[Rfam]
RNA sequence: UGGCCUGAAAUGAUGCUAUGACUUCAUGUCUCUUCUCUGAGAUAUGUCAUGGAGACACCGACGUCUUUCUGAUCAGGCUU
Numbered sequence: 001u002g003g004c005c006u007g008a009a010a011u012g013a014u015g016c017u018a019u020g021a022c023u024u025c026a027u028g029u030c031u032c033u034u035c036u037c038u039g040a041g042a043u044a045u046g047u048c049a050u051g052g053a054g055a056c057a058c059c060g061a062c063g064u065c066u067u068u069c070u071g072a073u074c075a076g077g078c079u080u
Stems, first nucleotide, its partner, number of pairs: 002079004
Shown here is an 80-nucleotide RNA from Eubucco bourcierii, a member of the family "Small nucleolar RNA SNORD111". A reference for the family is Galardi et al. (2002), "Purified box C/D snoRNPs are able to reproduce site-specific 2'-O-methylation of target RNA in vitro", Mol Cell Biol. It is annotated as a C/D-box small nucleolar RNA. A search with the family's covariance model found it, with a score of 48 bits. Its family is annotated with RNA processing and nucleolus in the Gene Ontology.